[Rfam]
RNA: Eukaryotic large subunit ribosomal RNA, nucleotides 996 to 1400
Organism: Trichinella sp. T9
RNA sequence: GAGUUCAGUAGGCACGCGAGUCGUUGACGUUUUUCAUUGAACAGUCGAAGGCGAAAUGAAAGUGUUCAUGAAAAUGAACAGUACUUUUCUAUGGAGUGCUGCUCGUUUUCAACAUGAUCGUCCUUUUUUGUGCUUAAUUGUGCAAAAUUGAUAGAUGGGGACGCGCAGUGUGGUGCCGUUGAAUAGUCGCACUGUUCUUUCUUUCUCUUCGGGGUUGGAGGAACAAUUGUCGAUCAGUCGGUUUCGGAGCGUGCACACUGGUACCCGAAAGAUGGUGAACUAUGCUUGAGCAGAAUGAAGCCAGAGGAAACUCUGGUGGAAGUUCGUAGCGGUGUUGACGUGCAAAUCACUCGUCUGACUUGAGUGUAGGGGCGAAAGACUAAUCGAACCAUCUAGUUGCUGGUU
Numbered sequence: 001g002a003g004u005u006c007a008g009u010a011g012g013c014a015c016g017c018g019a020g021u022c023g024u025u026g027a028c029g030u031u032u033u034u035c036a037u038u039g040a041a042c043a044g045u046c047g048a049a050g051g052c053g054a055a056a057u058g059a060a061a062g063u064g065u066u067c068a069u070g071a072a073a074a075u076g077a078a079c080a081g082u083a084c085u086u087u088u089c090u091a092u093g094g095a096g097u098g099c100u101g102c103u104c105g106u107u108u109u110c111a112a113c114a115u116g117a118u119c120g121u122c123c124u125u126u127u128u129u130g131u132g133c134u135u136a137a138u139u140g141u142g143c144a145a146a147a148u149u150g151a152u153a154g155a156u157g158g159g160g161a162c163g164c165g166c167a168g169u170g171u172g173g174u175g176c177c178g179u180u181g182a183a184u185a186g187u188c189g190c191a192c193u194g195u196u197c198u199u200u201c202u203u204u205c206u207c208u209u210c211g212g213g214g215u216u217g218g219a220g221g222a223a224c225a226a227u228u229g230u231c232g233a234u235c236a237g238u239c240g241g242u243u244u245c246g247g248a249g250c251g252u253g254c255a256c257a258c259u260g261g262u263a264c265c266c267g268a269a270a271g272a273u274g275g276u277g278a279a280c281u282a283u284g285c286u287u288g289a290g291c292a293g294a295a296u297g298a299a300g301c302c303a304g305a306g307g308a309a310a311c312u313c314u315g316g317u318g319g320a321a322g323u324u325c326g327u328a329g330c331g332g333u334g335u336u337g338a339c340g341u342g343c344a345a346a347u348c349a350c351u352c353g354u355c356u357g358a359c360u361u362g363a364g365u366g367u368a369g370g371g372g373c374g375a376a377a378g379a380c381u382a383a384u385c386g387a388a389c390c391a392u393c394u395a396g397u398u399g400c401u402g403g404u405u
Stems, first nucleotide, its partner, number of pairs: 005261005012254006020052003025047004056063002112171004119163007175243001176241003179237003186230001264403002267400001271393006280369011291357001293325004300317007329354004334350002337348002371381002